Shown here is an 81-nucleotide RNA sequence from Enterobius vermicularis, a member of the family "SmY spliceosomal RNA". Taxonomically the source falls in Enterobius (Eukaryota, Eumetazoa, Bilateria, Protostomia). Pairs were carried over by alignment from the consensus structure, which is taken from published work. The literature on the family includes a 1996 paper in RNA by Maroney et al., "Direct analysis of nematode cis- and trans-spliceosomes: a functional role for U5 snRNA in spliced leader addition trans-splicing and the identification of novel Sm snRNPs".

[Rfam]
RNA sequence: CUUCGCAUUCGUUUUCUAUCAGGGCCUUACUUAAGACCCAAAGAACAAUUUUUGGGGCCCGCUCACUGGAGUGUGUGGGCA
Numbered sequence: 001c002u003u004c005g006c007a008u009u010c011g012u013u014u015u016c017u018a019u020c021a022g023g024g025c026c027u028u029a030c031u032u033a034a035g036a037c038c039c040a041a042a043g044a045a046c047a048a049u050u051u052u053u054g055g056g057g058c059c060c061g062c063u064c065a066c067u068g069g070a071g072u073g074u075g076u077g078g079g080c081a
Stems, first nucleotide, its partner, number of pairs: 022039003026035003057080006064073003